[Rfam]
RNA sequence: GCGCCCGUCAUUGGGGAGUAGCGUCCCUCCUUCCACCGGUCGAGAGGGGCUUGCGUCAACAGACUUGCUCGUGACGAGCAUGGCGCAAGCGGUCCCGGACUUUGCGAGACCUUUGACUGCAUCGCCUCGGCACGGGCCGGGAGGCGGUGCAGUCAUUCGUGUCACGCCGGCCCCGGACUU
Numbered sequence: 001g002c003g004c005c006c007g008u009c010a011u012u013g014g015g016g017a018g019u020a021g022c023g024u025c026c027c028u029c030c031u032u033c034c035a036c037c038g039g040u041c042g043a044g045a046g047g048g049g050c051u052u053g054c055g056u057c058a059a060c061a062g063a064c065u066u067g068c069u070c071g072u073g074a075c076g077a078g079c080a081u082g083g084c085g086c087a088a089g090c091g092g093u094c095c096c097g098g099a100c101u102u103u104g105c106g107a108g109a110c111c112u113u114u115g116a117c118u119g120c121a122u123c124g125c126c127u128c129g130g131c132a133c134g135g136g137c138c139g140g141g142a143g144g145c146g147g148u149g150c151a152g153u154c155a156u157u158c159g160u161g162u163c164a165c166g167c168c169g170g171c172c173c174c175g176g177a178c179u180u
Base pairs, nucleotide, nucleotide: 026047027046028045049090050089051088052087053086054085055084056083057082058081066080067079068078069077070076091179092178093177094176095175097173
RNA: Manganese Mn2+ riboswitch aptamer (yybP-ykoY)
Organism: Caldimonas brevitalea